RNA sequence: GGAUCAUGAGGCGAUGUGAGUGGGUCUAUGCAACCAGCUGGGCUCAGGAAAGUCCCCGGGCCCCUGCUGCAGAGAUGCAGACUCGGAAACGAGUACUUGGAGCUGGGAUUUGCCUCGUCUAUAUGGCGAGGGGCUGAGACACGUGUGGAGCCUUCGCAAAUUCCGCCCAAGAGAUUGGCCGAUAUCACAGUCAUUCACAUGGUCUCUACAGACUAACCGAACGGGGCUUACACCCUCGUGAUC
Numbered sequence: 001g002g003a004u005c006a007u008g009a010g011g012c013g014a015u016g017u018g019a020g021u022g023g024g025u026c027u028a029u030g031c032a033a034c035c036a037g038c039u040g041g042g043c044u045c046a047g048g049a050a051a052g053u054c055c056c057c058g059g060g061c062c063c064c065u066g067c068u069g070c071a072g073a074g075a076u077g078c079a080g081a082c083u084c085g086g087a088a089a090c091g092a093g094u095a096c097u098u099g100g101a102g103c104u105g106g107g108a109u110u111u112g113c114c115u116c117g118u119c120u121a122u123a124u125g126g127c128g129a130g131g132g133g134c135u136g137a138g139a140c141a142c143g144u145g146u147g148g149a150g151c152c153u154u155c156g157c158a159a160a161u162u163c164c165g166c167c168c169a170a171g172a173g174a175u176u177g178g179c180c181g182a183u184a185u186c187a188c189a190g191u192c193a194u195u196c197a198c199a200u201g202g203u204c205u206c207u208a209c210a211g212a213c214u215a216a217c218c219g220a221a222c223g224g225g226g227c228u229u230a231c232a233c234c235c236u237c238g239u240g241a242u243c
Stems, first nucleotide, its partner, number of pairs: 002243010014200006021046008050229003054226004068079004081094005097172002105164006125152003139146002202213004
A member of the RNA family "RNase MRP" from Cajanus cajan, 243 nucleotides long. It scores 82 bits against the family's covariance model. It is annotated as a ribozyme. The organism belongs to Cajanus, within Eukaryota.